[Rfam]
Small nucleolar RNA SNORA15: a 138-nucleotide RNA sequence from Maylandia zebra. NCBI's taxonomy places the organism under Eukaryota, Metazoa, Euteleosteomorpha, Pseudocrenilabrinae, Maylandia zebra complex. It is annotated as an H/ACA-box small nucleolar RNA. On this family, see Huttenhofer et al., EMBO J 2001: "RNomics: an experimental approach that identifies 201 candidates for novel, small, non-messenger RNAs in mouse".

RNA sequence: GCAUGGCUGAAUUCUGUUUUGCUCUGGAUGUAGUAAAUACAGUCAGACACCAUGCAACAUGAAUGCUUUCACAAACUGACUCAGCAGGAUGAGGGUGCUCAUUGUGCUUCUCAUUCUUAUGUCAGAGUGAAUACAUCA
Numbered sequence: 001g002c003a004u005g006g007c008u009g010a011a012u013u014c015u016g017u018u019u020u021g022c023u024c025u026g027g028a029u030g031u032a033g034u035a036a037a038u039a040c041a042g043u044c045a046g047a048c049a050c051c052a053u054g055c056a057a058c059a060u061g062a063a064u065g066c067u068u069u070c071a072c073a074a075a076c077u078g079a080c081u082c083a084g085c086a087g088g089a090u091g092a093g094g095g096u097g098c099u100c101a102u103u104g105u106g107c108u109u110c111u112c113a114u115u116c117u118u119a120u121g122u123c124a125g126a127g128u129g130a131a132u133a134c135a136u137c138a
Stems, first nucleotide, its partner, number of pairs: 001055006014042004019037001068131003072125001075122002083120001086117009